[Rfam]
RNA sequence: UCCGGAGGAAGCUCACCGUCGAGGCCACGCACUGGGUGUCCGUCACCCGCGCUUCUCCGCCUCGGGGAAGGUCUGAGGGAAGGGCCAUGAGGCGGCUCCAGCAGAGCCCCGCCCGCGUGGGUGGGUGAGCCACCAGCAAGGGGGGGCGCCGCGCGGGCCGGCCUGGGCAGGAGAAGCCCGAACGGCUGCGGAGCUGAUCUGAGCCGGGGCGGAUGCUCGUGGCCCCGCGGUGCUUUGAGACAGACUCACGGCCGGCGUGCUGAGUCCAAUGGGUGAGGUGGGGCAGCGCCCCACAACCUAAUUCAGACUACUCUCCGCCGGA
Numbered sequence: 001u002c003c004g005g006a007g008g009a010a011g012c013u014c015a016c017c018g019u020c021g022a023g024g025c026c027a028c029g030c031a032c033u034g035g036g037u038g039u040c041c042g043u044c045a046c047c048c049g050c051g052c053u054u055c056u057c058c059g060c061c062u063c064g065g066g067g068a069a070g071g072u073c074u075g076a077g078g079g080a081a082g083g084g085c086c087a088u089g090a091g092g093c094g095g096c097u098c099c100a101g102c103a104g105a106g107c108c109c110c111g112c113c114c115g116c117g118u119g120g121g122u123g124g125g126u127g128a129g130c131c132a133c134c135a136g137c138a139a140g141g142g143g144g145g146g147c148g149c150c151g152c153g154c155g156g157g158c159c160g161g162c163c164u165g166g167g168c169a170g171g172a173g174a175a176g177c178c179c180g181a182a183c184g185g186c187u188g189c190g191g192a193g194c195u196g197a198u199c200u201g202a203g204c205c206g207g208g209g210c211g212g213a214u215g216c217u218c219g220u221g222g223c224c225c226c227g228c229g230g231u232g233c234u235u236u237g238a239g240a241c242a243g244a245c246u247c248a249c250g251g252c253c254g255g256c257g258u259g260c261u262g263a264g265u266c267c268a269a270u271g272g273g274u275g276a277g278g279u280g281g282g283g284c285a286g287c288g289c290c291c292c293a294c295a296a297c298c299u300a301a302u303u304c305a306g307a308c309u310a311c312u313c314u315c316c317g318c319c320g321g322a
Stems, first nucleotide, its partner, number of pairs: 001322004007316003012277006020064005034048005073306005083253004094108005109124006125249005131243001145234009278294007